[Rfam]
RNA sequence: CCUGUCAUCGACAGGUCAUCGGAAUGUGGUCCCUCCGGGACUGAACCGGCAA
Numbered sequence: 001c002c003u004g005u006c007a008u009c010g011a012c013a014g015g016u017c018a019u020c021g022g023a024a025u026g027u028g029g030u031c032c033c034u035c036c037g038g039g040a041c042u043g044a045a046c047c048g049g050c051a052a
Stems, first nucleotide, its partner, number of pairs: 001015005020048003028042005
A member of the RNA family "eL15-Euryarchaeota ribosomal protein leader", 52 nucleotides long. Rfam's curators put it in the seed alignment. Rfam classes the family as a cis-regulatory leader. Pairs were carried over by alignment from the consensus structure, which is taken from published work.